Shown here is a 337-nucleotide part of an RNA from Candidatus Epulonipiscium viviparus, a member of the family "Bacterial large subunit ribosomal RNA". Rfam's curators put it in the seed alignment.
RNA sequence: CGGGAGAAGUGUUGUUAAGGAACUCGGCAAAAUGACCCCGUAACUUAGGGAUAAGGGGUGCCAGUAGAAAUACUGGCCGCAGAGAAUAGGCCCAAGCAACUGUUUAGCAAAAACACAGGUCUCUGCUAAAUCGAAAGAUGAAGUAUAGGGGCUGACGCCUGCCCGGUGCUGGAAGGUUAAGGGGAGAGGUUAGGAGUAAUCCGAAGCUUUGAACUUAAGCCCCAGUAAACGGCGGCCGUAACUAUAACGGUCCUAAGGUAGCGAAAUUCCUUGUCAGGUAAGUUCUGACCCGCACGAAAGGCGUAAUGAUUUGGGUACUGUCUCGACAGCACGCCCG
Numbered sequence: 001c002g003g004g005a006g007a008a009g010u011g012u013u014g015u016u017a018a019g020g021a022a023c024u025c026g027g028c029a030a031a032a033u034g035a036c037c038c039c040g041u042a043a044c045u046u047a048g049g050g051a052u053a054a055g056g057g058g059u060g061c062c063a064g065u066a067g068a069a070a071u072a073c074u075g076g077c078c079g080c081a082g083a084g085a086a087u088a089g090g091c092c093c094a095a096g097c098a099a100c101u102g103u104u105u106a107g108c109a110a111a112a113a114c115a116c117a118g119g120u121c122u123c124u125g126c127u128a129a130a131u132c133g134a135a136a137g138a139u140g141a142a143g144u145a146u147a148g149g150g151g152c153u154g155a156c157g158c159c160u161g162c163c164c165g166g167u168g169c170u171g172g173a174a175g176g177u178u179a180a181g182g183g184g185a186g187a188g189g190u191u192a193g194g195a196g197u198a199a200u201c202c203g204a205a206g207c208u209u210u211g212a213a214c215u216u217a218a219g220c221c222c223c224a225g226u227a228a229a230c231g232g233c234g235g236c237c238g239u240a241a242c243u244a245u246a247a248c249g250g251u252c253c254u255a256a257g258g259u260a261g262c263g264a265a266a267u268u269c270c271u272u273g274u275c276a277g278g279u280a281a282g283u284u285c286u287g288a289c290c291c292g293c294a295c296g297a298a299a300g301g302c303g304u305a306a307u308g309a310u311u312u313g314g315g316u317a318c319u320g321u322c323u324c325g326a327c328a329g330c331a332c333g334c335c336c337g
Stems, first nucleotide, its partner, number of pairs: 001337004009332008018323003035059005044049001060077007078082001090316007097308002101115003118153008126143001130139003156303004161233003166230002168226005175221003181215002186210005193202002234252006253257001263290001273289006

Gene Ontology terms of the family: ribosome and structural constituent of ribosome. The source organism's lineage runs through Bacteria, Bacillota, Clostridia, Lachnospiraceae and Candidatus Epulonipiscium.